[Rfam]
RNA sequence: AAAGUCAAUCCCAAACUACUACUUAUCUAACCAAAACCCUAAUAGAAAUAGUUAACACUAGAGUACAACGGAUCAUACAACGAUCAACCAGGUAUGCUACCUAGGUCAGGUGAAGGAAAAGGGGUUGCCCCUUGAAUAUGACAUGCGAAUAGAGGGGAAGUAGUAGUU
Numbered sequence: 001a002a003a004g005u006c007a008a009u010c011c012c013a014a015a016c017u018a019c020u021a022c023u024u025a026u027c028u029a030a031c032c033a034a035a036a037c038c039c040u041a042a043u044a045g046a047a048a049u050a051g052u053u054a055a056c057a058c059u060a061g062a063g064u065a066c067a068a069c070g071g072a073u074c075a076u077a078c079a080a081c082g083a084u085c086a087a088c089c090a091g092g093u094a095u096g097c098u099a100c101c102u103a104g105g106u107c108a109g110g111u112g113a114a115g116g117a118a119a120a121g122g123g124g125u126u127g128c129c130c131c132u133u134g135a136a137u138a139u140g141a142c143a144u145g146c147g148a149a150u151a152g153a154g155g156g157g158a159a160g161u162a163g164u165a166g167u168u
Base pairs, nucleotide, nucleotide: 014168015167016166017165018164019163020162021161022160023159028127029126030125031124032123043067049060050059051058052057071085072084073083074082087106088105089104090102091101092100093099128157129156130155131154132153133152

RAGATH-9 RNA: a 168-nucleotide RNA sequence. For this family Rfam cites "New classes of self-cleaving ribozymes revealed by comparative genomics analysis" (Weinberg et al., Nat Chem Biol, 2015). Rfam classes the family as a small RNA. Rfam's curators put it in the seed alignment. Pairs were carried over by alignment from the consensus structure, which is taken from published work.